RNA sequence: UAAUUAUCGGGAACAGUGUUUCUCAUAAUGA
Numbered sequence: 001u002a003a004u005u006a007u008c009g010g011g012a013a014c015a016g017u018g019u020u021u022c023u024c025a026u027a028a029u030g031a
Stems, first nucleotide, its partner, number of pairs: 001031001003029005009024005014018001
Iron response element II: a 31-nucleotide RNA from Silurus meridionalis. Rfam's curators write: IRE, TFRC, SLC40A1, SDHB, SLC11A2, CDC42BPA, ACO2, ALAS2_H.SAPIENS, CDC14A, EPAS1, ALAS2, qoxD, Hao1, NDUFS1, transferrin, Aconitate. The match comes from Rfam's covariance-model search (31 bits). NCBI's taxonomy places the organism under Eukaryota, Eumetazoa, Bilateria, Gnathostomata, Silurus. The family's consensus secondary structure is taken from published work. Rfam links the family to the GO term response to iron ion. Rfam classes the family as a cis-regulatory element. A reference for the family is Kohler et al. (1995), "Succinate dehydrogenase b mRNA of Drosophila melanogaster has a functional iron-responsive element in its 5'-untranslated region", J Biol Chem.